Record summary
Bacterial RNase P class A: a 353-nucleotide RNA from Salinisphaera sp. Q1T1-3. Pairs were carried over by alignment from the consensus structure, which is taken from published work. It scores 325 bits against the family's covariance model.
[Rfam]
RNA sequence: GGAGCCGGCCAUGCAGUCGCGGCAUCGCCCUGCGGUGUCGAGGAAAGUCCGGGCUCCACAGGGCAGGACGCCAGGUAACUCCUGGGAGGCGCGAGCCUACGGAAAGUGCAACAGAGAGUAGACCGCCUACGGUCCGCAUGCGGACCCGGCAAGGCUGAAAGGGUGCGGUAAGAGCGCACCGCGCGUUCGGUAACGAGUCGUGGCACGGUAAACCCCGUCCGGAGCAAGACCAAAUAGGAGGACGACGUGCGGCCCGCAUAGUCCUCGGGUAGGUCGCAUGAGGCGUUCGGCGACGAGCGCCCCAGAUGAAUGACUGCGCGCGACAGAACCCGGCUUAUCGGCCGGCUCCUUUU
Numbered sequence: 001g002g003a004g005c006c007g008g009c010c011a012u013g014c015a016g017u018c019g020c021g022g023c024a025u026c027g028c029c030c031u032g033c034g035g036u037g038u039c040g041a042g043g044a045a046a047g048u049c050c051g052g053g054c055u056c057c058a059c060a061g062g063g064c065a066g067g068a069c070g071c072c073a074g075g076u077a078a079c080u081c082c083u084g085g086g087a088g089g090c091g092c093g094a095g096c097c098u099a100c101g102g103a104a105a106g107u108g109c110a111a112c113a114g115a116g117a118g119u120a121g122a123c124c125g126c127c128u129a130c131g132g133u134c135c136g137c138a139u140g141c142g143g144a145c146c147c148g149g150c151a152a153g154g155c156u157g158a159a160a161g162g163g164u165g166c167g168g169u170a171a172g173a174g175c176g177c178a179c180c181g182c183g184c185g186u187u188c189g190g191u192a193a194c195g196a197g198u199c200g201u202g203g204c205a206c207g208g209u210a211a212a213c214c215c216c217g218u219c220c221g222g223a224g225c226a227a228g229a230c231c232a233a234a235u236a237g238g239a240g241g242a243c244g245a246c247g248u249g250c251g252g253c254c255c256g257c258a259u260a261g262u263c264c265u266c267g268g269g270u271a272g273g274u275c276g277c278a279u280g281a282g283g284c285g286u287u288c289g290g291c292g293a294c295g296a297g298c299g300c301c302c303c304a305g306a307u308g309a310a311u312g313a314c315u316g317c318g319c320g321c322g323a324c325a326g327a328a329c330c331c332g333g334c335u336u337a338u339c340g341g342c343c344g345g346c347u348c349c350u351u352u353u
Stems, first nucleotide, its partner, number of pairs: 001349010011338001012318007020040009045336003049333005054224004061255004066220005071085005086100001087098004101215002106213002108209002123154002125150003131146006162180006181204001182202004187196003228275004238266006247259004282301008
About this RNA: By type it is a ribozyme.